Shown here is a 390-nucleotide sequence from Peribacillus psychrosaccharolyticus, a member of the family "Bacterial RNase P class B". On this family, see Frank and Pace, Annu Rev Biochem 1998: "Ribonuclease P: unity and diversity in a tRNA processing ribozyme". Taxonomically the source falls in Peribacillus (Bacteria, Bacilli, Caryophanales, Bacillaceae). The family's RNA type in Rfam is ribozyme.
RNA sequence: ACGUUUGGGUAAUUGCUGCAAUAUUUUAUAUUGUAGAGGAAAGUCCAUGCUCGCACUGGCUGAGAUGCCAGUAGUGUUCGUGCCUGGUGAAAAAAUAAGCUUGGGCAGCAGUUUAACUGCUGACGGCAGGGAAAACACCUAAGUCUUCGGAUAUGGUGUGAAUACCUAUAAAAGUGCCACAGUGACGUAGCCUUUUCAGAAAUGAAAAGGGUGGAACGAGGUAAACCCCACGAGCGAGAAACCCAAAUUAAGGUAGGGGCGCUUUCUUCCUUGGAAUUCAACGAGGAGAAGGACAGAGACUUAGCUCUCUGUAGAUAGAUGAUUACCACCGAAGUACGAGGUGAUUAUUCACCGUUCGCAGUACUGAGGAACAAAACAUGGCUUACAGAA
Numbered sequence: 001a002c003g004u005u006u007g008g009g010u011a012a013u014u015g016c017u018g019c020a021a022u023a024u025u026u027u028a029u030a031u032u033g034u035a036g037a038g039g040a041a042a043g044u045c046c047a048u049g050c051u052c053g054c055a056c057u058g059g060c061u062g063a064g065a066u067g068c069c070a071g072u073a074g075u076g077u078u079c080g081u082g083c084c085u086g087g088u089g090a091a092a093a094a095a096u097a098a099g100c101u102u103g104g105g106c107a108g109c110a111g112u113u114u115a116a117c118u119g120c121u122g123a124c125g126g127c128a129g130g131g132a133a134a135a136c137a138c139c140u141a142a143g144u145c146u147u148c149g150g151a152u153a154u155g156g157u158g159u160g161a162a163u164a165c166c167u168a169u170a171a172a173a174g175u176g177c178c179a180c181a182g183u184g185a186c187g188u189a190g191c192c193u194u195u196u197c198a199g200a201a202a203u204g205a206a207a208a209g210g211g212u213g214g215a216a217c218g219a220g221g222u223a224a225a226c227c228c229c230a231c232g233a234g235c236g237a238g239a240a241a242c243c244c245a246a247a248u249u250a251a252g253g254u255a256g257g258g259g260c261g262c263u264u265u266c267u268u269c270c271u272u273g274g275a276a277u278u279c280a281a282c283g284a285g286g287a288g289a290a291g292g293a294c295a296g297a298g299a300c301u302u303a304g305c306u307c308u309c310u311g312u313a314g315a316u317a318g319a320u321g322a323u324u325a326c327c328a329c330c331g332a333a334g335u336a337c338g339a340g341g342u343g344a345u346u347a348u349u350c351a352c353c354g355u356u357c358g359c360a361g362u363a364c365u366g367a368g369g370a371a372c373a374a375a376a377c378a379u380g381g382c383u384u385a386c387a388g389a390a
Stems, first nucleotide, its partner, number of pairs: 004390003007386001008327007016036006041384003045381005050238005055072006078233005083104002086101003105124001106122006125228002128167003136158004143152003174226002176222003191210008242258003262292007293312006329369002333365005